[Rfam]
RNA: mir-1 microRNA precursor family
Organism: Ophiophagus hannah
RNA sequence: AAUGACAUACUUCUUUAUAUGCCCAUAUGAACCUGGCCAACUAUGGAAUGUAAAGAAGUAUGUAUUUCAGGC
Number, nucleotide and partner (000 for none) at each position: 001a000002a066003u000004g000005a063006c062007a061008u060009a059010c058011u057012u056013c055014u054015u053016u052017a051018u050019a049020u048021g000022c000023c046024c045025a044026u043027a042028u000029g000030a000031a000032c000033c000034u000035g000036g000037c000038c000039a000040a000041c000042u027043a026044u025045g024046g023047a000048a020049u019050g018051u017052a016053a015054a014055g013056a012057a011058g010059u009060a008061u007062g006063u005064a000065u000066u002067u000068c000069a000070g000071g000072c000